[Rfam]
RNA sequence: CCGUAACACCCACCGAGAAACGCAUGGCAGGAGCGGGGGAACCAGGUAGGUCGCCGCAGCACAUUGCCCUGACGUUCUGGACAUUCAGAUCUUUUGGGGCAAUCCGUUACGGCUUGGGGUGAAGUCGCGGCCGUCAGGACGCGACCGGGCAGCUCCCGCCCGAACCCGACAGCUCACCUCGCAGGCGACGGAGAGGAAAACU
Dot-bracket structure: ((....(.......................).((((((....(((((................................................................)))))(((.....((((............))))..((((.......))))...))).........)))))).)).................
RNA: c-di-AMP riboswitch aptamer (ydaO/yuaA leader)